[Rfam]
RNA sequence: AUACUUACCUGGCGCAGAGGAUACCGUGAUCAAUAAGGCGGUUCCUCCAGGACGAGGCUCUUCCAUUGCACUACGGUUGAGCUGACCCCUGCGAAUAUCCCUAAUGUGGAUAUCUCGGGCGUAUUAUUUUUGGUAGUCGGGACUGCGUUCGCGCUAUCCCGG
Number, nucleotide and partner (000 for none) at each position: 001a000002u000003a000004c000005u000006u000007a000008c000009c000010u000011g000012g122013c121014g120015c119016a000017g047018a046019g045020g044021a043022u000023a042024c041025c040026g039027u038028g000029a000030u000031c000032a000033a000034u000035a000036a000037g000038g027039c026040g025041g024042u023043u021044c020045c019046u018047c017048c000049a090050g089051g088052a000053c000054g086055a000056g083057g082058c081059u000060c079061u000062u000063c076064c075065a000066u000067u000068g000069c000070a000071c000072u000073a000074c000075g064076g063077u000078u000079g060080a000081g058082c057083u056084g000085a000086c054087c000088c051089c050090u049091g000092c117093g116094a115095a113096u112097a111098u000099c109100c108101c000102u000103a000104a000105u000106g000107u000108g100109g099110a000111u097112a096113u095114c000115u094116c093117g092118g000119g015120c014121g013122u012123a000124u000125u000126a000127u000128u000129u000130u000131u000132g000133g000134u000135a000136g000137u162138c161139g160140g159141g158142a157143c000144u000145g154146c153147g152148u000149u000150c000151g000152c147153g146154c145155u000156a000157u142158c141159c140160c139161g138162g137
U1 spliceosomal RNA: a 162-nucleotide RNA sequence from Cotesia congregata. The base pairs follow the family's consensus structure, which is taken from published work. About the family: U1 is a small nuclear RNA (snRNA) component of the spliceosome (involved in pre-mRNA splicing). A search with the family's covariance model found it, with a score of 149 bits. The source organism's lineage runs through Eukaryota, Arthropoda, Neoptera, Ichneumonoidea and Cotesia.